[Rfam]
RNA sequence: UUAGUUAAAGAGAGUCUCACUGUGGCCAGAGCGACCAACUCAGUCCCGGAAUGUAAAAACCCGAUGAUUAAAUCGGGUUUUUUUA
Numbered sequence: 001u002u003a004g005u006u007a008a009a010g011a012g013a014g015u016c017u018c019a020c021u022g023u024g025g026c027c028a029g030a031g032c033g034a035c036c037a038a039c040u041c042a043g044u045c046c047c048g049g050a051a052u053g054u055a056a057a058a059a060c061c062c063g064a065u066g067a068u069u070a071a072a073u074c075g076g077g078u079u080u081u082u083u084u085a
Stems, first nucleotide, its partner, number of pairs: 021050001023048003029041003055082011

Background
Rfam assigns this 85-nucleotide RNA sequence from Leminorella grimontii to the family "ArsR-gov region gene B". NCBI's taxonomy places the organism under Bacteria, Pseudomonadota, Enterobacterales, Leminorella, Leminorella grimontii. From the family's description: arsR-gov region gene B is transcribed opposite of dinQ (translates into a toxic single transmembrane peptide) with 30 complimentary nucleotides. AgrB appears to repress accumulation of dinQ by RNA interference and counteracts its toxicity. The family's consensus secondary structure was predicted with RNAfold.